RNA sequence: CUCUUAUGAAGAGAGAGGGAGGGACUGGCCCGAUGAACUCUCGGCAACCUGGUGUGCAAAGGUGCCAAAUCCAGCGGAUACUUCCGGAAGAUAAGAG
Numbered sequence: 001c002u003c004u005u006a007u008g009a010a011g012a013g014a015g016a017g018g019g020a021g022g023g024a025c026u027g028g029c030c031c032g033a034u035g036a037a038c039u040c041u042c043g044g045c046a047a048c049c050u051g052g053u054g055u056g057c058a059a060a061g062g063u064g065c066c067a068a069a070u071c072c073a074g075c076g077g078a079u080a081c082u083u084c085c086g087g088a089a090g091a092u093a094a095g096a097g
Stems, first nucleotide, its partner, number of pairs: 001097007013042005021031003025074004043066004048062002050058002070089001075086004

Background:
SAM riboswitch aptamer (S box leader): a 97-nucleotide RNA from Aneurinibacillus migulanus. The organism belongs to Aneurinibacillus, within Bacteria. The family's consensus secondary structure is taken from published work.